[Rfam]
RNA sequence: GGGGGAUGAAGGCCGACUAAGAACGCCACGUCCUGUGGCAACGUCGGCACUAGCACGUCCUGUACG
Numbered sequence: 001g002g003g004g005g006a007u008g009a010a011g012g013c014c015g016a017c018u019a020a021g022a023a024c025g026c027c028a029c030g031u032c033c034u035g036u037g038g039c040a041a042c043g044u045c046g047g048c049a050c051u052a053g054c055a056c057g058u059c060c061u062g063u064a065c066g
Stems, first nucleotide, its partner, number of pairs: 012048006025039005053065001055063002
Shown here is a 66-nucleotide RNA sequence from Cytobacillus dafuensis, a member of the family "Bacillaceae-1 RNA". The family's RNA type in Rfam is small RNA. Pairs were carried over by alignment from the consensus structure, which is taken from published work.